[Rfam]
RNA sequence: AAAUCGACGUGUGACGAAACUGACCUGCGUCAGUUUUUUAAAAUUAAAUGGAACGGCUUGAGUUAUUCCGAGCAGUUAAAAAAAUUAAUAUGUGUUGAAUAUCGCUACUGCAUUCUUAAAAAAGUGGUGCAGAUUUUAGCCCAUAACUUUUUUGAUUUACAUCGACGAUACGGCGUCGAAAGAAAAAUAAAUAGACCGUACUAAGAAUAAAA
Numbered sequence: 001a002a003a004u005c006g007a008c009g010u011g012u013g014a015c016g017a018a019a020c021u022g023a024c025c026u027g028c029g030u031c032a033g034u035u036u037u038u039u040a041a042a043a044u045u046a047a048a049u050g051g052a053a054c055g056g057c058u059u060g061a062g063u064u065a066u067u068c069c070g071a072g073c074a075g076u077u078a079a080a081a082a083a084a085u086u087a088a089u090a091u092g093u094g095u096u097g098a099a100u101a102u103c104g105c106u107a108c109u110g111c112a113u114u115c116u117u118a119a120a121a122a123a124g125u126g127g128u129g130c131a132g133a134u135u136u137u138a139g140c141c142c143a144u145a146a147c148u149u150u151u152u153u154g155a156u157u158u159a160c161a162u163c164g165a166c167g168a169u170a171c172g173g174c175g176u177c178g179a180a181a182g183a184a185a186a187a188u189a190a191a192u193a194g195a196c197c198g199u200a201c202u203a204a205g206a207a208u209a210a211a212a
Stems, first nucleotide, its partner, number of pairs: 007199003011196002016037009050069004055064003072111005085098005116155010126142002129140002162179006
The record is a 212-nucleotide RNA sequence from Enterococcus faecalis, which matches "Enterococcus sRNA A1" in Rfam. The family's consensus secondary structure was predicted with RNAfold. The sequence is in the family's curated seed alignment. On this family, see Innocenti et al., RNA 2015: "Whole-genome mapping of 5' RNA ends in bacteria by tagged sequencing: a comprehensive view in Enterococcus faecalis".